The record is a 91-nucleotide RNA sequence from Metabacillus arenae, which matches "c-di-GMP-I riboswitch aptamer" in Rfam.
A search with the family's covariance model found it, with a score of 60 bits.
GEMM was predicted in a large-scale screen for bacterial structured RNA regulatory elements.
Rfam 15.1 lists 5,092 matches to the family in 1,772 species.
RNA sequence: UUCAGAUAAAGGCAAACCUACCUGAAAAAUAGGAUCGCAAAGUCACGGGUCUAAGGUUCUGAUCACGAGCCAUGAUGGCCGGGUCGCCUAG
Numbered sequence: 001u002u003c004a005g006a007u008a009a010a011g012g013c014a015a016a017c018c019u020a021c022c023u024g025a026a027a028a029a030u031a032g033g034a035u036c037g038c039a040a041a042g043u044c045a046c047g048g049g050u051c052u053a054a055g056g057u058u059c060u061g062a063u064c065a066c067g068a069g070c071c072a073u074g075a076u077g078g079c080c081g082g083g084u085c086g087c088c089u090a091g
Stems, first nucleotide, its partner, number of pairs: 012038002017033004023028001042084003046081003049076003056070004
Pairs were carried over by alignment from the consensus structure, which is taken from published work. Its family is annotated with cyclic-di-GMP binding in the Gene Ontology. NCBI's taxonomy places the organism under Bacteria, Bacillati, Caryophanales, Bacillaceae, Metabacillus.